[Rfam]
Nucleotides: 076
Stems, first nucleotide, its partner, number of pairs: 002016003006012001020035002023032001025030001047074006
Number, partner (000 for none) and nucleotide at each position: 001000a002016u003015g004014u005000c006012c007000c008000g009000c010000u011000c012006g013000u014004a015003c016002a017000u018000u019000g020035c021034g022000a023032u024000u025030u026000c027000u028000c029000c030025g031000c032023g033000c034021c035020g036000u037000c038000c039000a040000c041000a042000c043000g044000g045000a046000c047074c048073u049072g050071a051070c052069g053000a054000c055000u056000g057000c058000u059000g060000g061000c062000u063000a064000c065000g066000u067000u068000g069052u070051g071050u072049u073048a074047g075000c076000c
Xanthomonas sRNA sX9: a 76-nucleotide RNA sequence from Xanthomonas oryzae. A search with the family's covariance model found it, with a score of 66 bits. The literature on the family includes a 2011 paper in Nucleic Acids Res by Schmidtke et al., "Genome-wide transcriptome analysis of the plant pathogen Xanthomonas identifies sRNAs with putative virulence functions". The source organism's lineage runs through Bacteria, Pseudomonadati, Gammaproteobacteria, Xanthomonas and Xanthomonas oryzae pv. oryzae.